[Rfam]
RNA: glmS glucosamine-6-phosphate activated ribozyme aptamer
RNA sequence: AUCCUAACAACAGCGCCAGAGCUUGUAAGAGCGUGAGAUACACGGUUGCGGGAUACAUUUCGUAACCUUUUUAUGGAUAUUGAUGAACUAUCCAUGAUCUGACGGCUGCCUGCAAGUUGACGAGGUGAAGGUGUUCGAAACAUUCGGCGGGGACCUUCCGGUAGCACUCACUACCGUUAAGUUGGACAGCAAAGCACUCGGGUGACCGGGUGGACAACAAUCCAACAUGAAAGAGG
Numbered sequence: 001a002u003c004c005u006a007a008c009a010a011c012a013g014c015g016c017c018a019g020a021g022c023u024u025g026u027a028a029g030a031g032c033g034u035g036a037g038a039u040a041c042a043c044g045g046u047u048g049c050g051g052g053a054u055a056c057a058u059u060u061c062g063u064a065a066c067c068u069u070u071u072u073a074u075g076g077a078u079a080u081u082g083a084u085g086a087a088c089u090a091u092c093c094a095u096g097a098u099c100u101g102a103c104g105g106c107u108g109c110c111u112g113c114a115a116g117u118u119g120a121c122g123a124g125g126u127g128a129a130g131g132u133g134u135u136c137g138a139a140a141c142a143u144u145c146g147g148c149g150g151g152g153a154c155c156u157u158c159c160g161g162u163a164g165c166a167c168u169c170a171c172u173a174c175c176g177u178u179a180a181g182u183u184g185g186a187c188a189g190c191a192a193a194g195c196a197c198u199c200g201g202g203u204g205a206c207c208g209g210g211u212g213g214a215c216a217a218c219a220a221u222c223c224a225a226c227a228u229g230a231a232a233g234a235g236g
Base pairs, nucleotide, nucleotide: 020118021117022116023115024114025113026112027111029109127158128157129156130155131154135147136146137145138144159176160175161174162173163172164171181226182225183224184223185222186221195212196211197210198209199208200207201206